[Rfam]
RNA sequence: AGGGCUGGUCGCGAGACCCUGGUCCGUCUUUAGGAGGGGAAGUAUCCC
Numbered sequence: 001a002g003g004g005c006u007g008g009u010c011g012c013g014a015g016a017c018c019c020u021g022g023u024c025c026g027u028c029u030u031u032a033g034g035a036g037g038g039g040a041a042g043u044a045u046c047c048c
Base pairs, nucleotide, nucleotide: 002025003024004023005022006021007018008017009016010015
Dot-bracket structure: .(((((((((....))))..))))).......................
DUF3800-XI RNA: a 48-nucleotide sequence. Rfam describes the family as follows. Actinobacteria, Firmicutes, Proteobacteria, Spirochaetes (1 example).